[Rfam]
RNA sequence: AAUCUUCAGAUGAUGAUGUUGGAUUUAUAUUCUCACGACGGUCGUCUGAGGCACUUAUUAGUGUCGUUUUGAUGUAUUAUGAUCCAAUUGUCUGAUGAUU
Numbered sequence: 001a002a003u004c005u006u007c008a009g010a011u012g013a014u015g016a017u018g019u020u021g022g023a024u025u026u027a028u029a030u031u032c033u034c035a036c037g038a039c040g041g042u043c044g045u046c047u048g049a050g051g052c053a054c055u056u057a058u059u060a061g062u063g064u065c066g067u068u069u070u071g072a073u074g075u076a077u078u079a080u081g082a083u084c085c086a087a088u089u090g091u092c093u094g095a096u097g098a099u100u
Stems, first nucleotide, its partner, number of pairs: 001100004052063003
RNA: Small nucleolar RNA Z161/Z228
Organism: Spinacia oleracea